[Rfam]
RNA: SAM (S-adenosyl methionine) riboswitch aptamer
RNA sequence: GGUCAUGAGCGCCAGCGUCAAGCCCCGGCUCGCUGGCCGGCAACCCUCCAGCCGCGGUGGGGUGCCCCGGGUGAGGACCAGGCCUCCCGCGGGGUGCGGGUUGGCAAGCGCGGACC
Numbered sequence: 001g002g003u004c005a006u007g008a009g010c011g012c013c014a015g016c017g018u019c020a021a022g023c024c025c026c027g028g029c030u031c032g033c034u035g036g037c038c039g040g041c042a043a044c045c046c047u048c049c050a051g052c053c054g055c056g057g058u059g060g061g062g063u064g065c066c067c068c069g070g071g072u073g074a075g076g077a078c079c080a081g082g083c084c085u086c087c088c089g090c091g092g093g094g095u096g097c098g099g100g101u102u103g104g105c106a107a108g109c110g111c112g113g114a115c116c
Stems, first nucleotide, its partner, number of pairs: 001079004009038001011037006021030002039066003044062003048057002082105003086100005